RNA sequence: AACAUCGUAUUGGGAGAAUCCGCGGGACUUUUCGCGGUGCCGAAGGAGCAACUGCCCCGGAAACUCUCAGGCCAAAGGACCAGUGCGAUGGC
Numbered sequence: 001a002a003c004a005u006c007g008u009a010u011u012g013g014g015a016g017a018a019u020c021c022g023c024g025g026g027a028c029u030u031u032u033c034g035c036g037g038u039g040c041c042g043a044a045g046g047a048g049c050a051a052c053u054g055c056c057c058c059g060g061a062a063a064c065u066c067u068c069a070g071g072c073c074a075a076a077g078g079a080c081c082a083g084u085g086c087g088a089u090g091g092c
Stems, first nucleotide, its partner, number of pairs: 006087008020037004039072003042068002046066003052059001
A member of the RNA family "Glycine riboswitch aptamer" from Martelella alba, 92 nucleotides long.
The match comes from Rfam's covariance-model search (62 bits).
Its family is annotated with glycine biosynthetic process in the Gene Ontology.